[Rfam]
RNA sequence: GCUGGGGUAGCAGAAGAACCCUUACCAUUACUAAACUCAGUAAUGGUAACGGUUUUGCUGACACCCCAAAA
Dot-bracket structure: ......((..(((...((((.(((((((((((......))))))))))).))))...)))..)).......